A member of the RNA family "SAM (S-adenosyl methionine) riboswitch aptamer" from Renibacterium salmoninarum, 132 nucleotides long. SAM-IV is a mRNA element that regulates gene expression via direct sensing of S-adenosylmethionine (SAM or AdoMet). SAM-IV riboswitches share conserved nucleotide positions with the previously described SAM-I riboswitches sequence analysis and molecular recognition experiments suggest that SAM-I and SAM-IV riboswitches share similar ligand binding sites, but have different scaffolds. Rfam links the family to the GO terms regulation of gene expression and S-adenosylmethionine metabolic process. The source organism's lineage runs through Bacteria, Actinomycetota, Actinomycetes, Micrococcaceae and Renibacterium salmoninarum.

RNA sequence: CUUCAUGAGUUGCGGUCGCUCUGUCACAGCACAGCUCCGACUGGCCGCACGCCAACCCCAUGUUCAAGGGUGGCUCGGAUGAGGAAGCGACCUGGCGGGCCACGAGACAAACCCGGCGGGUAAGAGCACUCC
Numbered sequence: 001c002u003u004c005a006u007g008a009g010u011u012g013c014g015g016u017c018g019c020u021c022u023g024u025c026a027c028a029g030c031a032c033a034g035c036u037c038c039g040a041c042u043g044g045c046c047g048c049a050c051g052c053c054a055a056c057c058c059c060a061u062g063u064u065c066a067a068g069g070g071u072g073g074c075u076c077g078g079a080u081g082a083g084g085a086a087g088c089g090a091c092c093u094g095g096c097g098g099g100c101c102a103c104g105a106g107a108c109a110a111a112c113c114c115g116g117c118g119g120g121u122a123a124g125a126g127c128a129c130u131c132c
Stems, first nucleotide, its partner, number of pairs: 001087004009050001011049006033042002051074003056070003090121005096115004